[Rfam]
RNA sequence: GGGGUUCGCCGGAUGACCGCGCUGCUUCCGGGACCGGGUUUCCGGAUUUCUUGGAAGUGUGAGGAAAGUCCGGACACUAUGGAACCGCGGGACCGGGUAAUUCCCGGAGUUCUAUUCCGUCCCAAGCGGAAUGGGGCAUGGAAAGUGCAGCAGAAAGUAUACCGCCUCGGAGGACUUUCGAGGUAAGGGUGAAACGGUGGGGUAAGAGCCCACCGCCAUUCCUCGUAAGGGGAUGGGCAGGCAAACCCUCCCGGGUGCAAUCCCGAAUAGGCGAUCGUUAGUUGCGGGUUCCGCAAGAUCGUGGGUAGGGAGCAAAGAGUCCGAUCGGCAACCGUCGGGCCAAGAUAAAUGGUCAUCGCCGGAGGAUUUCGAAAGAAAUUCUUCGGUACAGAAUCCGGCUUAUAGGCGAACCCCUAUU
Numbered sequence: 001g002g003g004g005u006u007c008g009c010c011g012g013a014u015g016a017c018c019g020c021g022c023u024g025c026u027u028c029c030g031g032g033a034c035c036g037g038g039u040u041u042c043c044g045g046a047u048u049u050c051u052u053g054g055a056a057g058u059g060u061g062a063g064g065a066a067a068g069u070c071c072g073g074a075c076a077c078u079a080u081g082g083a084a085c086c087g088c089g090g091g092a093c094c095g096g097g098u099a100a101u102u103c104c105c106g107g108a109g110u111u112c113u114a115u116u117c118c119g120u121c122c123c124a125a126g127c128g129g130a131a132u133g134g135g136g137c138a139u140g141g142a143a144a145g146u147g148c149a150g151c152a153g154a155a156a157g158u159a160u161a162c163c164g165c166c167u168c169g170g171a172g173g174a175c176u177u178u179c180g181a182g183g184u185a186a187g188g189g190u191g192a193a194a195c196g197g198u199g200g201g202g203u204a205a206g207a208g209c210c211c212a213c214c215g216c217c218a219u220u221c222c223u224c225g226u227a228a229g230g231g232g233a234u235g236g237g238c239a240g241g242c243a244a245a246c247c248c249u250c251c252c253g254g255g256u257g258c259a260a261u262c263c264c265g266a267a268u269a270g271g272c273g274a275u276c277g278u279u280a281g282u283u284g285c286g287g288g289u290u291c292c293g294c295a296a297g298a299u300c301g302u303g304g305g306u307a308g309g310g311a312g313c314a315a316a317g318a319g320u321c322c323g324a325u326c327g328g329c330a331a332c333c334g335u336c337g338g339g340c341c342a343a344g345a346u347a348a349a350u351g352g353u354c355a356u357c358g359c360c361g362g363a364g365g366a367u368u369u370c371g372a373a374a375g376a377a378a379u380u381c382u383u384c385g386g387u388a389c390a391g392a393a394u395c396c397g398g399c400u401u402a403u404a405g406g407c408g409a410a411c412c413c414c415u416a417u418u
Stems, first nucleotide, its partner, number of pairs: 001414010011403001012357007020061003025057009066401003070398005075257004084290001086288001088253005093107005108139001109137012140248002145246002147242002162188002164184009196214006215238001216236004221232004261311004271302006282296005319340006326334001327332001
The record is a 418-nucleotide RNA from Leptospira fluminis, which matches "Bacterial RNase P class A" in Rfam. Lineage of the source: Bacteria > Pseudomonadati > Leptospiria > Leptospiraceae > Leptospira.